Record summary: The record is a 45-nucleotide RNA sequence from Gallibacterium salpingitidis, which matches "PreQ1 (pre queuosine) riboswitch aptamer" in Rfam. Its family is annotated with queuosine biosynthetic process in the Gene Ontology. The organism belongs to Gallibacterium, within Bacteria. This family is a bacterial riboswitch that binds to the metabolite preQ1, an intermediate in the biosynthesis of the modified nucleoside queuosine from GTP. One example of this riboswitch is located in the leader of the Bacillus subtilis ykvJKLM (queCDEF) operon which encodes four genes necessary for queuosine production. PreQ1 binding to the riboswitch aptamer is thought to induce premature transcription termination within the leader to down-regulate expression of these genes.
RNA sequence: AUUGUCGUGGUUCGCAAACCUCCCACGUUAAAAAACUAGGAACAU
Numbered sequence: 001a002u003u004g005u006c007g008u009g010g011u012u013c014g015c016a017a018a019c020c021u022c023c024c025a026c027g028u029u030a031a032a033a034a035a036c037u038a039g040g041a042a043c044a045u
Stems, first nucleotide, its partner, number of pairs: 006027005016037001